Shown here is a 134-nucleotide RNA sequence from Dasyornis broadbenti, a member of the family "Small nucleolar RNA SNORA5". It is annotated as an H/ACA-box small nucleolar RNA. The family is grouped with related families in Rfam's "SNORA5 clan". The family's consensus secondary structure was predicted with RNAfold. The source organism's lineage runs through Eukaryota, Opisthokonta, Deuterostomia, Sarcopterygii and Dasyornis. Rfam describes the family as follows. ACA5 is a member of the H/ACA class of snoRNA that guide the sites of modification of uridines to pseudouridines. A search with the family's covariance model found it, with a score of 63 bits. Gene Ontology terms of the family: nucleolus and RNA processing.
RNA sequence: UGCAGCCCAGUCAAAUUCGGUCCCUGUCCCCCCAUGGUGGGGACCGGCCACCGGCUGCCACAUCAACCUCUGUGCUCCGUGUGCCCCAUGUCCCCGUCUGCAGGACCUGGGGACACGGAUCCCCACGGACACGU
Dot-bracket structure: .((((............(((((((((((.......)))))))))))........)))).............(((.........(((((...................)))))...........)))........